[Rfam]
RNA: Listeria sRNA rliI
Organism: Regulus satrapa
Nucleotides: 212
Stems, first nucleotide, its partner, number of pairs: 008151001010149001013146002016142003020138003025133005031128001035063006064127008074117002078113007090101004153175001157171006180211002184207010
Number, partner (000 for none) and nucleotide at each position: 001000g002000a003000u004000u005000u006000c007000u008151g009000a010149g011000a012000g013146g014145g015000u016142u017141u018140u019000c020138c021137a022136g023000g024000a025133u026132u027131u028130g029129g030000g031128g032000g033000u034000g035063u036062c037061c038060c039059a040058a041000a042000c043000c044000a045000a046000u047000a048000a049000u050000u051000c052000c053000a054000a055000a056000u057000u058040u059039u060038g061037g062036g063035a064127a065126u066125u067124u068123u069122u070121g071120g072000a073000a074117u075116g076000a077000u078113u079112u080111u081110c082109c083108c084107a085000a086000u087000u088000u089000u090101u091100g092099g093098g094000a095000c096000g097000u098093c099092c100091c101090a102000a103000a104000a105000a106000u107084u108083g109082g110081g111080a112079a113078a114000a115000u116075c117074a118000u119000c120071c121070c122069a123068a124067a125066a126065a127064u128031c129029c130028c131027a132026a133025a134000a135000a136022u137021u138020g139000g140018g141017a142016a143000a144000a145014u146013c147000a148000u149010c150000c151008c152000a153175a154000a155000a156000a157171u158170c159169c160168c161167a162166a163000a164000a165000a166162u167161u168160g169159g170158g171157a172000a173000a174000a175153u176000c177000a178000u179000c180211c181210c182000a183000g184207a185206a186205a187204a188203u189202c190201c191200c192199a193198a194000a195000u196000a197000u198193u199192u200191g201190g202189g203188a204187u205186u206185u207184u208000c209000u210181g211180g212000g